[Rfam]
The family of this 86-nucleotide RNA sequence from Thermobrachium celere is "c-di-GMP-I riboswitch aptamer". The base pairs follow the family's consensus structure, which is taken from published work. It scores 83 bits against the family's covariance model.
RNA sequence: ACCUGAAAAGGGCAAACUUAGGGAAACCUAAGGACGCAAAGUCAUGGGCCUAAGGAGCAGAGCUCUAUGGUUGCCAGACUGCCAGG
Numbered sequence: 001a002c003c004u005g006a007a008a009a010g011g012g013c014a015a016a017c018u019u020a021g022g023g024a025a026a027c028c029u030a031a032g033g034a035c036g037c038a039a040a041g042u043c044a045u046g047g048g049c050c051u052a053a054g055g056a057g058c059a060g061a062g063c064u065c066u067a068u069g070g071u072u073g074c075c076a077g078a079c080u081g082c083c084a085g086g
Stems, first nucleotide, its partner, number of pairs: 012037002017032006040080004045076003048071003055065004
The source organism's lineage runs through Bacteria, Bacillota, Clostridia, Thermobrachium and Thermobrachium celere.